[Rfam]
RNA sequence: AAUCACACGGAAGGAGUUCUCUUGUCGGGGUUGGUGGGUUUCCAUAUUGCGCUCUGUUAUGACGACUCCUGGUGGAACCGUGUCUACGAAGGUAUUGAAUCAUUAUGGGAUUGUCAGCUCACGAAACAGUCCUCACCUCUGCAAUGGCCAAUGUCGCUCGACGAUUCUCGCGGUUGACGUUGGAAGCAGCGCCGGGACCCAUCUAGAGUUGGAGUCAAAGUUUCGUGCUUGUCCGGUGCUGUGAAAGACCCUGCCACUGAGUUGAAAUCCACGGUGUUGUGUCGCAUUGGCAAGAUUGGGUUGUAAUAUUGGAUCUAGGACAGGCCUGGUUGGUGUGGCAGUCCUGGCUGUCCUCUCGCCUGAAAACGGUGCAGAGGACAGCCCCCC
Numbered sequence: 001a002a003u004c005a006c007a008c009g010g011a012a013g014g015a016g017u018u019c020u021c022u023u024g025u026c027g028g029g030g031u032u033g034g035u036g037g038g039u040u041u042c043c044a045u046a047u048u049g050c051g052c053u054c055u056g057u058u059a060u061g062a063c064g065a066c067u068c069c070u071g072g073u074g075g076a077a078c079c080g081u082g083u084c085u086a087c088g089a090a091g092g093u094a095u096u097g098a099a100u101c102a103u104u105a106u107g108g109g110a111u112u113g114u115c116a117g118c119u120c121a122c123g124a125a126a127c128a129g130u131c132c133u134c135a136c137c138u139c140u141g142c143a144a145u146g147g148c149c150a151a152u153g154u155c156g157c158u159c160g161a162c163g164a165u166u167c168u169c170g171c172g173g174u175u176g177a178c179g180u181u182g183g184a185a186g187c188a189g190c191g192c193c194g195g196g197a198c199c200c201a202u203c204u205a206g207a208g209u210u211g212g213a214g215u216c217a218a219a220g221u222u223u224c225g226u227g228c229u230u231g232u233c234c235g236g237u238g239c240u241g242u243g244a245a246a247g248a249c250c251c252u253g254c255c256a257c258u259g260a261g262u263u264g265a266a267a268u269c270c271a272c273g274g275u276g277u278u279g280u281g282u283c284g285c286a287u288u289g290g291c292a293a294g295a296u297u298g299g300g301u302u303g304u305a306a307u308a309u310u311g312g313a314u315c316u317a318g319g320a321c322a323g324g325c326c327u328g329g330u331u332g333g334u335g336u337g338g339c340a341g342u343c344c345u346g347g348c349u350g351u352c353c354u355c356u357c358g359c360c361u362g363a364a365a366a367c368g369g370u371g372c373a374g375a376g377g378a379c380a381g382c383c384c385c386c387c
Stems, first nucleotide, its partner, number of pairs: 196216003199212003218230004
RNA: Ascomycota telomerase RNA, nucleotides 1114 to 1500